[Rfam]
This 119-nucleotide sequence from Yersinia pseudotuberculosis belongs to the Rfam family "SodB 5' UTR thermometer". Pairs were carried over by alignment from the consensus structure. Its family is annotated with response to temperature stimulus and regulation of translation in the Gene Ontology.
RNA sequence: UUUUAACCGCUCUUCACCCCACACCUCUCAACAAUGGUGGAUAGGAUUUGAAGAGCAAACACCCUGAGCAACCCCGAAAGGAGAGAGCUAUGUCUUUUGAAUUACCUGCAUUACCUUAC
Number, nucleotide and partner (000 for none) at each position: 001u000002u000003u000004u000005a000006a000007c000008c000009g000010c000011u000012c000013u000014u000015c000016a000017c000018c000019c000020c000021a000022c000023a000024c000025c085026u084027c083028u082029c081030a000031a000032c000033a000034a000035u076036g075037g074038u000039g073040g072041a000042u066043a065044g064045g063046a000047u059048u058049u057050g056051a000052a000053g000054a000055g000056c050057a049058a048059a047060c000061a000062c000063c045064c044065u043066g042067a000068g000069c000070a000071a000072c040073c039074c037075c036076g035077a000078a000079a000080g000081g029082a028083g027084a026085g025086a107087g106088c000089u104090a103091u000092g000093u100094c099095u000096u000097u000098u000099g094100a093101a000102u000103u090104a089105c000106c087107u086108g000109c000110a000111u000112u000113a000114c000115c000116u000117u000118a000119c000
Annotation: Rfam describes the family as follows. Involved in protection against oxidative stress. The literature on the family includes a 2016 paper in Proc Natl Acad Sci U S A by Righetti et al., "Temperature-responsive in vitro RNA structurome of Yersinia pseudotuberculosis".